[Rfam]
RNA sequence: CCUUCAUCCUUGCAACGAACUUGAGCCAUUGAUUCAGUAAAACAUUCAAUGACACAUGCUUGUUGUUAGGAUCAAAAGA
Numbered sequence: 001c002c003u004u005c006a007u008c009c010u011u012g013c014a015a016c017g018a019a020c021u022u023g024a025g026c027c028a029u030u031g032a033u034u035c036a037g038u039a040a041a042a043c044a045u046u047c048a049a050u051g052a053c054a055c056a057u058g059c060u061u062g063u064u065g066u067u068a069g070g071a072u073c074a075a076a077a078g079a
Stems, first nucleotide, its partner, number of pairs: 002078003006072005012066005020058001022056002025053001027051006
Rfam assigns this 79-nucleotide RNA from Theropithecus gelada to the family "mir-891 microRNA precursor family". Rfam 15.1 lists 38 matches to the family in 21 species. A search with the family's covariance model found it, with a score of 98 bits. The family's consensus secondary structure was predicted with RNAalifold. Rfam links the family to the GO terms miRNA-mediated post-transcriptional gene silencing and RISC complex.